[Rfam]
RNA sequence: AUAGCGGAAUCUGAAAAGCUAAUGUAAACAGAGUAAGAA
Numbered sequence: 001a002u003a004g005c006g007g008a009a010u011c012u013g014a015a016a017a018g019c020u021a022a023u024g025u026a027a028a029c030a031g032a033g034u035a036a037g038a039a
Stems, first nucleotide, its partner, number of pairs: 002021004010038003
RNA: DUF805b RNA
Organism: Aquimarina muelleri